[Rfam]
Group II catalytic intron D1-D4-1: a 77-nucleotide RNA sequence from Paraburkholderia sp. BL23I1N1. The match comes from Rfam's covariance-model search (50 bits). The base pairs follow the family's consensus structure. Rfam links the family to the GO term Group II intron splicing. NCBI's taxonomy places the organism under Bacteria, Pseudomonadati, Betaproteobacteria, Burkholderiales, Paraburkholderia.
RNA sequence: UGAGCGGCUCGCAAGGGCCGUUGACCACCGUGCAGGAGUCAGCAGAGGGCAUAUUAGGGCGGCGACGCCUGAAGGCC
Numbered sequence: 001u002g003a004g005c006g007g008c009u010c011g012c013a014a015g016g017g018c019c020g021u022u023g024a025c026c027a028c029c030g031u032g033c034a035g036g037a038g039u040c041a042g043c044a045g046a047g048g049g050c051a052u053a054u055u056a057g058g059g060c061g062g063c064g065a066c067g068c069c070u071g072a073a074g075g076c077c
Stems, first nucleotide, its partner, number of pairs: 003022008039046002048077003057070005